[Rfam]
RNA sequence: UAUGGAUUGAAUCCAAUUCAUCGACAAGUUUUUUUAUUUGGUGGAUGGAUUGGAUGACUAUUUAUA
Number, nucleotide and partner (000 for none) at each position: 001u000002a000003u000004g062005g061006a059007u000008u057009g000010a000011a055012u054013c053014c052015a051016a050017u049018u048019c047020a046021u045022c044023g000024a000025c040026a039027a038028g037029u036030u000031u000032u000033u000034u000035u000036a029037u028038u027039u026040g025041g000042u000043g000044g022045a021046u020047g019048g018049a017050u016051u015052g014053g013054a012055u011056g000057a008058c000059u006060a000061u005062u004063u000064a000065u000066a000
This 66-nucleotide RNA from Trifolium medium belongs to the Rfam family "MIR5291 microRNA precursor family". Taxonomically the source falls in Trifolium (Eukaryota, Viridiplantae, Embryophyta, fabids). The match comes from Rfam's covariance-model search (57 bits). Gene Ontology terms of the family: RISC complex and miRNA-mediated post-transcriptional gene silencing.